[Rfam]
This 30-nucleotide RNA sequence from Salinispora arenicola belongs to the Rfam family "CRISPR RNA direct repeat element". NCBI's taxonomy places the organism under Bacteria, Actinomycetes, Micromonosporaceae, Salinispora, Salinispora arenicola. The base pairs follow the family's consensus structure, which was predicted with WAR. Rfam links the family to the GO term defense response.
RNA sequence: GUUGCGAUCCCUCCAGGCGUGAUAAGCAAC
Numbered sequence: 001g002u003u004g005c006g007a008u009c010c011c012u013c014c015a016g017g018c019g020u021g022a023u024a025a026g027c028a029a030c
Stems, first nucleotide, its partner, number of pairs: 001030005007020002010017002